[Rfam]
A member of the RNA family "Archaeal large subunit ribosomal RNA" from Halobacterium salinarum, 251 nucleotides of a longer RNA.
RNA sequence: UGGUGCUUGACAGGAACGUUCGUAUAGUACGAGAGGAACUACGAACGGGUGCCACUGGUGUAUCGGUUGUCCGAGAGGGCAUGUGCCGAGCAGCUACGCACCACGGGGUAAGAGCUGAAUGCAUCUAAGCUCGAAACCCACCUGGAAAAGAAGCACCACUGAGACCGCUCGUAGAAGACGAGUUCGAUAGACUUGGGGUGUACGCGUCGAGGCAACGAGACGUUUAGCCCGCGAGUACUAACAGGUCAAUG
Numbered sequence: 001u002g003g004u005g006c007u008u009g010a011c012a013g014g015a016a017c018g019u020u021c022g023u024a025u026a027g028u029a030c031g032a033g034a035g036g037a038a039c040u041a042c043g044a045a046c047g048g049g050u051g052c053c054a055c056u057g058g059u060g061u062a063u064c065g066g067u068u069g070u071c072c073g074a075g076a077g078g079g080c081a082u083g084u085g086c087c088g089a090g091c092a093g094c095u096a097c098g099c100a101c102c103a104c105g106g107g108g109u110a111a112g113a114g115c116u117g118a119a120u121g122c123a124u125c126u127a128a129g130c131u132c133g134a135a136a137c138c139c140a141c142c143u144g145g146a147a148a149a150g151a152a153g154c155a156c157c158a159c160u161g162a163g164a165c166c167g168c169u170c171g172u173a174g175a176a177g178a179c180g181a182g183u184u185c186g187a188u189a190g191a192c193u194u195g196g197g198g199u200g201u202a203c204g205c206g207u208c209g210a211g212g213c214a215a216c217g218a219g220a221c222g223u224u225u226a227g228c229c230c231g232c233g234a235g236u237a238c239u240a241a242c243a244g245g246u247c248a249a250u251g
Base pairs, nucleotide, nucleotide: 001158002157003156004155005154006153007152008151011144012143013142014141017047018046019045020044021043022042023041024040048102049101050100051099052098056096057095058094063089064088065087066086067085068081069080070079071078072077105139106138107137112132113131114130115129116128163247164246165245166244167183168182169181170180171179188240189239190238191236192235193234194233195232196230197229198228204223205222206221207220208219211216
Rfam links the family to the GO terms structural constituent of ribosome and ribosome. The base pairs follow the family's consensus structure, which is taken from published work.